[Rfam]
RNA sequence: UCACAAAGAAAUGUUGACUGUAACGUGUCAUGUUCUAAUUGGACAUGAAAAGGUGCGCCCAAGAGCCAACUCUAACAAUUUUCUGUUCAUCGUCCAAUCAGAAUGUGACACGUGACAAUCAACUUUU
Numbered sequence: 001u002c003a004c005a006a007a008g009a010a011a012u013g014u015u016g017a018c019u020g021u022a023a024c025g026u027g028u029c030a031u032g033u034u035c036u037a038a039u040u041g042g043a044c045a046u047g048a049a050a051a052g053g054u055g056c057g058c059c060c061a062a063g064a065g066c067c068a069a070c071u072c073u074a075a076c077a078a079u080u081u082u083c084u085g086u087u088c089a090u091c092g093u094c095c096a097a098u099c100a101g102a103a104u105g106u107g108a109c110a111c112g113u114g115a116c117a118a119u120c121a122a123c124u125u126u127u
Stems, first nucleotide, its partner, number of pairs: 020116002023113001025111002029107003033103004038098005
Overview:
This 127-nucleotide sequence from Glycine max belongs to the Rfam family "MIR1520 microRNA precursor family". The organism belongs to Glycine subgen. Soja, within Eukaryota. Its Rfam clan is "MIR1520 microRNA precursor clan". Rfam links the family to the GO terms miRNA-mediated post-transcriptional gene silencing and RISC complex.